[Rfam]
RNA sequence: CCACGGCCGGCGGGGAAACCGUUACCAUUACUGAGUUUAGUAAUGGUAACGGUUCUGCCGACGGCUGGCAA
Numbered sequence: 001c002c003a004c005g006g007c008c009g010g011c012g013g014g015g016a017a018a019c020c021g022u023u024a025c026c027a028u029u030a031c032u033g034a035g036u037u038u039a040g041u042a043a044u045g046g047u048a049a050c051g052g053u054u055c056u057g058c059c060g061a062c063g064g065c066u067g068g069c070a071a
Stems, first nucleotide, its partner, number of pairs: 007064003011060003017054004022049012
RNA: mir-451 microRNA precursor family
Organism: Junco hyemalis